[Rfam]
RNA sequence: UAAAAGGGUCUUUGCUAUCAUUGGCACACCUGGCCAUUGGUCAGGUGCGGAAUCACUAUCAAGAGAUUUCGGAGAUAUAAUUUUUUUAAUACUGUGGCUGUAAGUGUCCUAUGACCUUGCGCCCUU
Numbered sequence: 001u002a003a004a005a006g007g008g009u010c011u012u013u014g015c016u017a018u019c020a021u022u023g024g025c026a027c028a029c030c031u032g033g034c035c036a037u038u039g040g041u042c043a044g045g046u047g048c049g050g051a052a053u054c055a056c057u058a059u060c061a062a063g064a065g066a067u068u069u070c071g072g073a074g075a076u077a078u079a080a081u082u083u084u085u086u087u088a089a090u091a092c093u094g095u096g097g098c099u100g101u102a103a104g105u106g107u108c109c110u111a112u113g114a115c116c117u118u119g120c121g122c123c124c125u126u
Base pairs, nucleotide, nucleotide: 008076009075010074011073012072013026014025015024016023017022027047028046029045030044031043032042033041034040035039048071049070050069051068052067053066054065096123097122098121100120101119102118103117104116106115107114108113
This 126-nucleotide sequence from Owenia fusiformis belongs to the Rfam family "U11 spliceosomal RNA". It is annotated as a spliceosomal small nuclear RNA. The match comes from Rfam's covariance-model search (95 bits). The organism belongs to Owenia, within Eukaryota.